[Rfam]
RNA sequence: AAAAGGAGCAAUAAUCCCUCUUUUCUAUCAAGAGGGAUUAUUGCUCCUUUUUUGAU
Numbered sequence: 001a002a003a004a005g006g007a008g009c010a011a012u013a014a015u016c017c018c019u020c021u022u023u024u025c026u027a028u029c030a031a032g033a034g035g036g037a038u039u040a041u042u043g044c045u046c047c048u049u050u051u052u053u054g055a056u
Base pairs, nucleotide, nucleotide: 002050003049004048005047006046007045008044009043010042011041012040013039014038018034019033020032021031022030
A member of the RNA family "Plastid-psbA-3 3UTR RNA" from Weigela japonica, 56 nucleotides long. Rfam's curators write: Plastid psbA-3 is a non-coding RNA (ncRNA) present in plastids. It was identified in inverted repeat sequences in the 3 prime untranslate region (3UTR) of photosystem II quinone-binding protein (psbA). It is one of the family's seed sequences. By type it is a cis-regulatory element. On this family, see Richter et al., Plant Commun 2023: "Retrograde signaling in plants: A critical review focusing on the GUN pathway and beyond". The organism belongs to Weigela, within Eukaryota. Pairs were carried over by alignment from the consensus structure, which was predicted with LocARNA.